[Rfam]
RNA sequence: UGGAGGAACAACCCCAGUGGCCAUGGCCAGCUCUGGAUCCCUGGAGUCAGCUCCCACAGUAGGUACAGAGCUCUCAGUCUGCAAGGCCUGGAGGCUCUGGGGCGGG
Numbered sequence: 001u002g003g004a005g006g007a008a009c010a011a012c013c014c015c016a017g018u019g020g021c022c023a024u025g026g027c028c029a030g031c032u033c034u035g036g037a038u039c040c041c042u043g044g045a046g047u048c049a050g051c052u053c054c055c056a057c058a059g060u061a062g063g064u065a066c067a068g069a070g071c072u073c074u075c076a077g078u079c080u081g082c083a084a085g086g087c088c089u090g091g092a093g094g095c096u097c098u099g100g101g102g103c104g105g106g
Stems, first nucleotide, its partner, number of pairs: 002098004009090002012086002019079003025074002029072007037064001041059003

This 106-nucleotide RNA sequence from Nyctereutes procyonoides belongs to the Rfam family "mir-8834 microRNA precursor family". Gene Ontology terms of the family: RISC complex and miRNA-mediated post-transcriptional gene silencing.